[Rfam]
RNA sequence: GGAGUUGGCCAGACAGUCGCCCCUUGCGUCAGGAAGGGGAGGAAAGUCCGGGCUCCACCGGGCAGGGUGCCAGGUAACGCCUGGGGGACGCGAGUCCACGGACAGUGCCACAGAAAACAAACCGCCGGUUCCGCCGGUAAGGGUGAAAAGGUGCGGUAAGAGCGCACCGCGUUGGUGGUAACAUCAACGGCAGGGUAAACCCCACCCGGAGCAAGACCAAAUAGGGGGACGGGCAGCAGCGAUGCUGCAACGCGCGGCCCGCGCGUGUCCCCGGGUAGGUCGCAUGAGGCGCACGGCGACGUGCGUCCAAGAUGAAUGACUGUCCUCGACAGAACCCGGCUUAUCGGCCAACUCCUACC
Number, nucleotide and partner (000 for none) at each position: 001g355002g354003a353004g352005u351006u350007g349008g348009c347010c346011a344012g324013a323014c322015a321016g320017u319018c318019g000020c039021c038022c037023c036024u035025u034026g000027c032028g000029u000030c000031a000032g027033g000034a025035a024036g023037g022038g021039g020040a000041g000042g000043a000044a342045a341046g340047u000048c339049c338050g337051g336052g335053c211054u210055c209056c208057a000058c000059c000060g260061g259062g258063c257064a000065g207066g206067g205068u204069g203070c084071c083072a082073g081074g080075u000076a000077a000078c000079g000080c074081c073082u072083g071084g070085g099086g097087g096088a095089c094090g000091c000092g000093a000094g089095u088096c087097c086098a000099c085100g202101g201102a000103c000104a000105g200106u199107g196108c195109c194110a000111c000112a000113g000114a000115a000116a000117a000118c000119a000120a000121a000122c142123c141124g138125c137126c136127g135128g134129u133130u000131c000132c000133g129134c128135c127136g126137g125138u124139a000140a000141g123142g122143g000144u000145g000146a000147a000148a000149a000150g168151g167152u166153g165154c164155g163156g000157u000158a000159a000160g000161a000162g000163c155164g154165c153166a152167c151168c150169g191170c189171g188172u187173u186174g185175g184176u183177g182178g000179u000180a000181a000182c177183a176184u175185c174186a173187a172188c171189g170190g000191c169192a000193g000194g109195g108196u107197a000198a000199a106200c105201c101202c100203c069204a068205c067206c066207c065208g056209g055210a054211g053212c000213a000214a000215g281216a280217c279218c278219a000220a000221a000222u000223a000224g000225g272226g271227g270228g269229a268230c267231g000232g000233g000234c000235a000236g000237c000238a000239g000240c000241g000242a000243u000244g000245c000246u000247g000248c000249a000250a000251c265252g264253c263254g262255c261256g000257g063258c062259c061260c060261g255262c254263g253264c252265g251266u000267g230268u229269c228270c227271c226272c225273g000274g000275g000276u000277a000278g218279g217280u216281c215282g000283c000284a000285u000286g000287a000288g307289g306290c305291g304292c303293a302294c301295g300296g000297c000298g000299a000300c295301g294302u293303g292304c291305g290306u289307c288308c000309a000310a000311g000312a000313u000314g000315a000316a000317u000318g018319a017320c016321u015322g014323u013324c012325c000326u000327c000328g000329a000330c000331a000332g000333a000334a000335c052336c051337c050338g049339g048340c046341u045342u044343a000344u011345c000346g010347g009348c008349c007350a006351a005352c004353u003354c002355c001356u000357a000358c000359c000
Rfam assigns this 359-nucleotide RNA from Caldichromatium japonicum to the family "Bacterial RNase P class A". The base pairs follow the family's consensus structure, which is taken from published work.